A member of the RNA family "Iron response element II" from Alligator mississippiensis, 31 nucleotides long. The source organism's lineage runs through Eukaryota, Bilateria, Sarcopterygii, Dipnotetrapodomorpha and Alligator. For this family Rfam cites "Iron-dependent regulation of the divalent metal ion transporter" (Gunshin et al., FEBS Lett, 2001). The family's RNA type in Rfam is cis-regulatory element. Gene Ontology term of the family: response to iron ion.

RNA sequence: UAUCUAUCAGUGACAGUGAUUACUAUAGUUA
Numbered sequence: 001u002a003u004c005u006a007u008c009a010g011u012g013a014c015a016g017u018g019a020u021u022a023c024u025a026u027a028g029u030u031a
Stems, first nucleotide, its partner, number of pairs: 001031002004028004009024005014018001